[Rfam]
RNA: mir-3492 microRNA precursor family
Nucleotides: 078
Stems, first nucleotide, its partner, number of pairs: 002077001004075001006073001008071001011068003016064002020061003024058003028054003
Number, partner (000 for none) and nucleotide at each position: 001000a002077g003000c004075u005000u006073u007000u008071c009000g010000a011068a012067u013066c014000c015000g016064u017063g018000c019000u020061g021060a022059g023000a024058u025057u026056u027000c028054g029053u030052c031000a032000g033000a034000c035000a036000c037000c038000a039000a040000c041000u042000c043000a044000u045000u046000a047000g048000g049000g050000c051000u052030g053029a054028u055000c056026a057025g058024a059022c060021u061020u062000c063017c064016a065000a066013g067012a068011u069000a070000a071008g072000u073006g074000u075004a076000a077002c078000a